[Rfam]
Nucleotides: 086
Stems, first nucleotide, its partner, number of pairs: 008045001010043004016030005054076003058072002062068002
Number, partner (000 for none) and nucleotide at each position: 001000g002000a003000g004000a005000g006000g007000a008045g009000a010043c011042a012041u013040c014000c015000a016030u017029g018028g019027a020026a021000c022000g023000g024000a025000g026020u027019u028018c029017c030016a031000u032000u033000u034000a035000g036000g037000a038000u039000g040013g041012a042011u043010g044000g045008c046000g047000a048000c049000g050000a051000u052000u053000u054076g055075u056074c057000a058072c059071a060000g061000a062068g063067c064000g065000u066000a067063g068062c069000g070000a071059u072058g073000u074056g075055a076054u077000g078000c079000u080000u081000c082000c083000c084000g085000u086000g